[Rfam]
RNA sequence: CAAGCACUUCGUUAGGCGAAGCUCCUGCACGAACACAGGCCACUGAUCUCACGACGUCGAGAGACGCCCAAGGUUAGGACAGGUCCUCCCGGAUUAAGGGUUGACCCGAAGUGGCUUCCGUCCGCUCCCGCGGACGGACACGUCGUGCAGUGCCGAAGCUCUUACGUGGAAGUCGUUC
Numbered sequence: 001c002a003a004g005c006a007c008u009u010c011g012u013u014a015g016g017c018g019a020a021g022c023u024c025c026u027g028c029a030c031g032a033a034c035a036c037a038g039g040c041c042a043c044u045g046a047u048c049u050c051a052c053g054a055c056g057u058c059g060a061g062a063g064a065c066g067c068c069c070a071a072g073g074u075u076a077g078g079a080c081a082g083g084u085c086c087u088c089c090c091g092g093a094u095u096a097a098g099g100g101u102u103g104a105c106c107c108g109a110a111g112u113g114g115c116u117u118c119c120g121u122c123c124g125c126u127c128c129c130g131c132g133g134a135c136g137g138a139c140a141c142g143u144c145g146u147g148c149a150g151u152g153c154c155g156a157a158g159c160u161c162u163u164a165c166g167u168g169g170a171a172g173u174c175g176u177u178c
Base pairs, nucleotide, nucleotide: 006173007172008171009170010169011165012164013097015160016159017158021153022152025150026149027148028147029146030145031144032143039115040114041113042112043111045075046074047073048072049071055066056065057064058063082106083105084104085103088100089099090098117138118137119136120135121134122133123132

The record is a 178-nucleotide RNA sequence from Gordonia sihwensis, which matches "M-box riboswitch aptamer (ykoK leader)" in Rfam. Gene Ontology terms of the family: response to magnesium ion and regulation of gene expression. On this family, see Barrick et al., Proc Natl Acad Sci U S A 2004: "New RNA motifs suggest an expanded scope for riboswitches in bacterial genetic control".